[Rfam]
RNA: mir-124 microRNA precursor family
RNA sequence: UGCUCCUCGUGUUCACUGUUGGCCUUGAUGUUUUAAUGAUCAUAAGGCACGCGGUGAAUGCCAAGAGCU
Numbered sequence: 001u002g003c004u005c006c007u008c009g010u011g012u013u014c015a016c017u018g019u020u021g022g023c024c025u026u027g028a029u030g031u032u033u034u035a036a037u038g039a040u041c042a043u044a045a046g047g048c049a050c051g052c053g054g055u056g057a058a059u060g061c062c063a064a065g066a067g068c069u
Stems, first nucleotide, its partner, number of pairs: 003067003009061008018052002023047005030040001